[Rfam]
RNA sequence: GACUGGCUGGCCAGGGAGCCGGAUUGACACAGGAAGUUCAGAGCCGCUAUAAUAGCGGAGUGCAGGAGCCGCCCCCGGCAGGUGGCGUUGAUAUUCGGGUCCCGAGCAAUGAGAGCCUACGAACCGUGUCAGGUCAGGAAUGAAGCAGCACUAAGUGGGAAUUCCCGUGUGCCUCGGGGGCGCCUGGGUUGAGUUAACCACCGGGGUAACGUCCUGCGUUUUUUAUUCCCAGUC
Numbered sequence: 001g002a003c004u005g006g007c008u009g010g011c012c013a014g015g016g017a018g019c020c021g022g023a024u025u026g027a028c029a030c031a032g033g034a035a036g037u038u039c040a041g042a043g044c045c046g047c048u049a050u051a052a053u054a055g056c057g058g059a060g061u062g063c064a065g066g067a068g069c070c071g072c073c074c075c076c077g078g079c080a081g082g083u084g085g086c087g088u089u090g091a092u093a094u095u096c097g098g099g100u101c102c103c104g105a106g107c108a109a110u111g112a113g114a115g116c117c118u119a120c121g122a123a124c125c126g127u128g129u130c131a132g133g134u135c136a137g138g139a140a141u142g143a144a145g146c147a148g149c150a151c152u153a154a155g156u157g158g159g160a161a162u163u164c165c166c167g168u169g170u171g172c173c174u175c176g177g178g179g180g181c182g183c184c185u186g187g188g189u190u191g192a193g194u195u196a197a198c199c200a201c202c203g204g205g206g207u208a209a210c211g212u213c214c215u216g217c218g219u220u221u222u223u224u225a226u227u228c229c230c231a232g233u234c
Stems, first nucleotide, its partner, number of pairs: 001234006008049004051227005057222010070211002074205005082198002084195003093189008101178006107169002110167002113164002116159005126151004134143003